[Rfam]
The record is a 59-nucleotide sequence from Nostocoides japonicum, which matches "msiK RNA" in Rfam.
RNA sequence: GACGUUCACCCCUUUACAACGGAUCGUCCGGCACGUUCCUGCCGGUGAAGGAAGGCGAC
Numbered sequence: 001g002a003c004g005u006u007c008a009c010c011c012c013u014u015u016a017c018a019a020c021g022g023a024u025c026g027u028c029c030g031g032c033a034c035g036u037u038c039c040u041g042c043c044g045g046u047g048a049a050g051g052a053a054g055g056c057g058a059c
Stems, first nucleotide, its partner, number of pairs: 011051006028045006
It scores 57 bits against the family's covariance model.